A member of the RNA family "MIR1435 microRNA precursor family" from Oryza sativa, 199 nucleotides long. Lineage of the source: Eukaryota > Mesangiospermae > Poales > Oryzeae > Oryza sativa. A search with the family's covariance model found it, with a score of 94 bits. The base pairs follow the family's consensus structure, which was predicted with RNAalifold. Rfam links the family to the GO terms RISC complex and miRNA-mediated post-transcriptional gene silencing.

RNA sequence: UGACUUUGGUUAAAGUCAAACUGCUUUAAGUUUGACCAAGUUUGUAAAAAAAGUAGUAACAUUUUCAAUCCAAGAUAAAUUUAUUAUGAAAAUAUAUUCAAUUAUUGAUUUAAUGAAACUAAUUUCGUAUUGUAAAUAUUACUAUAUUUGCCUACAAACUUAGUCAAAAUUGAAACAGUUUGACUUUAACCAAAGUUAG
Number, nucleotide and partner (000 for none) at each position: 001u000002g000003a000004c000005u194006u193007u192008g191009g190010u000011u188012a187013a186014a185015g184016u183017c182018a181019a180020a179021c178022u177023g176024c000025u174026u173027u000028a000029a000030g000031u168032u167033u166034g165035a164036c000037c000038a000039a000040g000041u000042u000043u000044g000045u154046a153047a000048a000049a000050a149051a148052a147053g000054u144055a143056g142057u000058a140059a139060c000061a137062u136063u135064u134065u000066c132067a131068a000069u000070c000071c127072a000073a125074g124075a123076u122077a000078a000079a000080u000081u000082u000083a000084u000085u000086a000087u000088g000089a000090a000091a000092a000093u000094a000095u000096a000097u000098u000099c000100a000101a000102u000103u000104a000105u000106u000107g000108a000109u000110u000111u000112a000113a000114u000115g000116a000117a000118a000119c000120u000121a000122a076123u075124u074125u073126c000127g071128u000129a000130u000131u067132g066133u000134a064135a063136a062137u061138a000139u059140u058141a000142c056143u055144a054145u000146a000147u052148u051149u050150g000151c000152c000153u046154a045155c000156a000157a000158a000159c000160u000161u000162a000163g000164u035165c034166a033167a032168a031169a000170u000171u000172g000173a026174a025175a000176c023177a022178g021179u020180u019181u018182g017183a016184c015185u014186u013187u012188a011189a000190c009191c008192a007193a006194a005195g000196u000197u000198a000199g000